Rfam assigns this 35-nucleotide RNA from Ovis aries to the family "Iron response element I". For this family Rfam cites "Identification of the iron-responsive element for the translational regulation of human ferritin mRNA" (Hentze et al., Science, 1987). The family has 62 seed sequences and 6,829 matches in Rfam 15.1. Lineage of the source: Eukaryota > Theria > Eutheria > Artiodactyla > Ovis. Rfam links the family to the GO term response to iron ion.

[Rfam]
RNA sequence: CUGUCUCUUGCUUCCACAGUGUUUGAAUGGAAUAG
Numbered sequence: 001c002u003g004u005c006u007c008u009u010g011c012u013u014c015c016a017c018a019g020u021g022u023u024u025g026a027a028u029g030g031a032a033u034a035g
Stems, first nucleotide, its partner, number of pairs: 001035004006031003010028001012027003016023001017021001